The record is a 168-nucleotide RNA from Corynebacterium timonense, which matches "M-box riboswitch aptamer (ykoK leader)" in Rfam. The organism belongs to Corynebacterium, within Bacteria. Rfam describes the family as follows. M-box riboswitch, also know as ykoK leader is described as a metaloregulatory RNA that sense divalent metals and function as a genetic control element of genes related to divalent metal transport in bacteria. It was first reported upstream of the B.subtilis ykoK gene and genes with related functions in other bacteria. For this family Rfam cites "Insights into metalloregulation by M-box riboswitch RNAs via structural analysis of manganese-bound complexes" (Ramesh et al., J Mol Biol, 2011).

[Rfam]
RNA sequence: GCACCACCUCGUUCGGUGAGGCUCCUGUACGCACACAGGCCACUGAGCUAGCGCGCAUCGAGAGAUAGCGACAGCUUAGGACAGAUAUUCUCGGCGCAAGGGUUUAUCCAAAGUGGCUCCGUUUCGGUUACGGCGUACAGUGCCAAAGCUCUUACGUGGAGGGGUAGC
Number, nucleotide and partner (000 for none) at each position: 001g000002c000003a000004c000005c164006a000007c162008c161009u160010c159011g155012u154013u099014c000015g150016g149017u148018g000019a000020g144021g143022c142023u000024c000025c140026u139027g138028u137029a136030c135031g134032c133033a000034c000035a000036c000037a000038g000039g117040c116041c115042a114043c113044u000045g077046a076047g075048c074049u073050a000051g000052c000053g000054c000055g000056c000057a066058u065059c064060g000061a000062g000063a000064g059065a058066u057067a000068g000069c000070g000071a000072c000073a049074g048075c047076u046077u045078a000079g000080g000081a000082c000083a000084g108085a107086u106087a105088u000089u000090c102091u101092c100093g000094g000095c000096g000097c000098a000099a013100g092101g091102g090103u000104u000105u087106a086107u085108c084109c000110a000111a000112a000113g043114u042115g041116g040117c039118u000119c127120c126121g125122u000123u000124u000125c121126g120127g119128u000129u000130a000131c000132g000133g032134c031135g030136u029137a028138c027139a026140g025141u000142g022143c021144c020145a000146a000147a000148g017149c016150u015151c000152u000153u000154a012155c011156g000157u000158g000159g010160a009161g008162g007163g000164g005165u000166a000167g000168c000
Rfam links the family to the GO terms response to magnesium ion and regulation of gene expression.